This 434-nucleotide part of an RNA from Camponotus floridanus belongs to the Rfam family "Eukaryotic large subunit ribosomal RNA". NCBI's taxonomy places the organism under Eukaryota, Metazoa, Eumetazoa, Hexapoda, Camponotus.
RNA sequence: CGACCUCAGAGCAGGCGAGAUUACCCGCUGAAUUUAAGCAUAUUAUUAAGCGGAGGAAAAGAAACUAACUAGGAUUUCCUCAGUAGCGGCGAGCGAACAGGAAAGAGCCCAGCACCGAAUCCCGCGGUUCCGCCGCAGGGAAAUGUGGUGUUUGGGAGGAUCCGCUUAUCCCGAGGCGUCGCGUCGCGUCCAAGUCCAUCUUGAAUGGGGCCACUUACCCGUAGAGGGUGCCAGGCCCGUAGCGACCGGUGCGCGUCUCGGGAGGAUCUCUCCUUAGAGUCGGGUUGCUUGAGAGUGCAGCUCUAAGUGGGUGGUAAACUCCAUCUAAGGCUAAAUACGACCACGAGUGAUAGCGAAUAAGUACCCCGUGAGGGAAAGUUGAAAAGAACUUUGAAGAGAGAGUUCAAGAGUACGUGAAACCGUUCAGGGGUAAA
Numbered sequence: 001c002g003a004c005c006u007c008a009g010a011g012c013a014g015g016c017g018a019g020a021u022u023a024c025c026c027g028c029u030g031a032a033u034u035u036a037a038g039c040a041u042a043u044u045a046u047u048a049a050g051c052g053g054a055g056g057a058a059a060a061g062a063a064a065c066u067a068a069c070u071a072g073g074a075u076u077u078c079c080u081c082a083g084u085a086g087c088g089g090c091g092a093g094c095g096a097a098c099a100g101g102a103a104a105g106a107g108c109c110c111a112g113c114a115c116c117g118a119a120u121c122c123c124g125c126g127g128u129u130c131c132g133c134c135g136c137a138g139g140g141a142a143a144u145g146u147g148g149u150g151u152u153u154g155g156g157a158g159g160a161u162c163c164g165c166u167u168a169u170c171c172c173g174a175g176g177c178g179u180c181g182c183g184u185c186g187c188g189u190c191c192a193a194g195u196c197c198a199u200c201u202u203g204a205a206u207g208g209g210g211c212c213a214c215u216u217a218c219c220c221g222u223a224g225a226g227g228g229u230g231c232c233a234g235g236c237c238c239g240u241a242g243c244g245a246c247c248g249g250u251g252c253g254c255g256u257c258u259c260g261g262g263a264g265g266a267u268c269u270c271u272c273c274u275u276a277g278a279g280u281c282g283g284g285u286u287g288c289u290u291g292a293g294a295g296u297g298c299a300g301c302u303c304u305a306a307g308u309g310g311g312u313g314g315u316a317a318a319c320u321c322c323a324u325c326u327a328a329g330g331c332u333a334a335a336u337a338c339g340a341c342c343a344c345g346a347g348u349g350a351u352a353g354c355g356a357a358u359a360a361g362u363a364c365c366c367c368g369u370g371a372g373g374g375a376a377a378g379u380u381g382a383a384a385a386g387a388a389c390u391u392u393g394a395a396g397a398g399a400g401a402g403u404u405c406a407a408g409a410g411u412a413c414g415u416g417a418a419a420c421c422g423u424u425c426a427g428g429g430g431u432a433a434a
Stems, first nucleotide, its partner, number of pairs: 024055001025053005035042002065072002076103005086094002106332004113150005119144001120141001122140002124136003155273002157269003161266003180253001185249001188246003194211001196210002199208002220224001227237002282303007309326005364373002389400004